[Rfam]
RNA: Small nucleolar RNA SNORD72
Organism: Urocynchramus pylzowi
RNA sequence: CAAUUUUUAAUGUGUUUGUUUUUAAAAAGGUCUGAACGGAUGAACUCUCUAGUGAUUUCAGUGUAUUACUGAGAUAAAUU
Numbered sequence: 001c002a003a004u005u006u007u008u009a010a011u012g013u014g015u016u017u018g019u020u021u022u023u024a025a026a027a028a029g030g031u032c033u034g035a036a037c038g039g040a041u042g043a044a045c046u047c048u049c050u051a052g053u054g055a056u057u058u059c060a061g062u063g064u065a066u067u068a069c070u071g072a073g074a075u076a077a078a079u080u
Base pairs, nucleotide, nucleotide: 002079004077005076007074008073